[Rfam]
RNA sequence: AAAGUCCCGAACCGGUAAGGGCUAGCGACCCACCGGAACCGAGUGUUGCGUGGACUGGGAGCGAUCCCAGCUGCGAAGCGUACACAGGGGCGUGCAGGCCGUGUGAUUGAGCCUCGAAAGAUUCAGAUGCGGAGCCGACGCUGUACAGAUGGCGGAAGGCAACAUCAGCUGCAUUGUAGCGCUUGAUGCAGGUGGUCCGCCGGGGUCGGUGAGCA
Numbered sequence: 001a002a003a004g005u006c007c008c009g010a011a012c013c014g015g016u017a018a019g020g021g022c023u024a025g026c027g028a029c030c031c032a033c034c035g036g037a038a039c040c041g042a043g044u045g046u047u048g049c050g051u052g053g054a055c056u057g058g059g060a061g062c063g064a065u066c067c068c069a070g071c072u073g074c075g076a077a078g079c080g081u082a083c084a085c086a087g088g089g090g091c092g093u094g095c096a097g098g099c100c101g102u103g104u105g106a107u108u109g110a111g112c113c114u115c116g117a118a119a120g121a122u123u124c125a126g127a128u129g130c131g132g133a134g135c136c137g138a139c140g141c142u143g144u145a146c147a148g149a150u151g152g153c154g155g156a157a158g159g160c161a162a163c164a165u166c167a168g169c170u171g172c173a174u175u176g177u178a179g180c181g182c183u184u185g186a187u188g189c190a191g192g193u194g195g196u197c198c199g200c201c202g203g204g205g206u207c208g209g210u211g212a213g214c215a
Stems, first nucleotide, its partner, number of pairs: 012036004019031003024183003039088002043085004047080002049075005055070006108209001109207001111206006129200005134160003139154004165195003169191007

Shown here is a 215-nucleotide sequence from Thiorhodococcus minor, a member of the family "Group II catalytic intron D1-D4-6".
A reference for the family is Bonen and Vogel (2001), "The ins and outs of group II introns", Trends Genet.
Rfam describes the family as follows. Group II introns are found in rRNA, tRNA and mRNA of organelles in fungi, plants and protists, and also in mRNA in bacteria.
The match comes from Rfam's covariance-model search (162 bits).
Gene Ontology term of the family: Group II intron splicing.
Pairs were carried over by alignment from the consensus structure.